[Rfam]
RNA sequence: AGUUUGUCCUUGGUCAUAUUGCUGUUUUUUGUUAUCUGCAAAUUUGCCAAGGACGAAAU
Numbered sequence: 001a002g003u004u005u006g007u008c009c010u011u012g013g014u015c016a017u018a019u020u021g022c023u024g025u026u027u028u029u030u031g032u033u034a035u036c037u038g039c040a041a042a043u044u045u046g047c048c049a050a051g052g053a054c055g056a057a058a059u
Stems, first nucleotide, its partner, number of pairs: 003057012019041004
Shown here is a 59-nucleotide RNA from Panagrellus redivivus, a member of the family "mir-7957 microRNA precursor family". Lineage of the source: Eukaryota > Opisthokonta > Eumetazoa > Nematoda > Panagrellus. Its family is annotated with miRNA-mediated post-transcriptional gene silencing and RISC complex in the Gene Ontology.